[Rfam]
This 61-nucleotide RNA from Pristionchus pacificus belongs to the Rfam family "mir-8364 microRNA precursor family". Its family is annotated with RISC complex and miRNA-mediated post-transcriptional gene silencing in the Gene Ontology. Lineage of the source: Eukaryota > Opisthokonta > Diplogasteromorpha > Neodiplogasteridae > Pristionchus. The match comes from Rfam's covariance-model search (69 bits).
RNA sequence: UCUCCAUUUCGCACACUCUCUCGUCGGUCAGAGAAACGAGAGAGUGUGGGAAAGUGAGAGA
Numbered sequence: 001u002c003u004c005c006a007u008u009u010c011g012c013a014c015a016c017u018c019u020c021u022c023g024u025c026g027g028u029c030a031g032a033g034a035a036a037c038g039a040g041a042g043a044g045u046g047u048g049g050g051a052a053a054g055u056g057a058g059a060g061a
Stems, first nucleotide, its partner, number of pairs: 001059004007053001010050001012048006019041004
Dot-bracket structure: ((((..(..(.((((((.((((...............)))).)))))).)..)..))))..